[Rfam]
RNA sequence: GGUUGCAAGUUUGAGGCCAUAGAAGAAGCGCUUGCAGCACAGCCCUGUCAGAUUCUGAUGAAUCUGCCAAUUCUGCU
Number, nucleotide and partner (000 for none) at each position: 001g000002g000003u000004u000005g000006c000007a000008a000009g000010u000011u000012u000013g045014a000015g044016g043017c042018c000019a000020u000021a077022g076023a000024a074025g073026a072027a071028g040029c000030g038031c000032u000033u000034g000035c000036a000037g000038c030039a000040c028041a000042g017043c016044c015045c013046u000047g000048u000049c066050a065051g064052a063053u062054u061055c060056u000057g000058a000059u000060g055061a054062a053063u052064c051065u050066g049067c000068c000069a000070a000071u027072u026073c025074u024075g000076c022077u021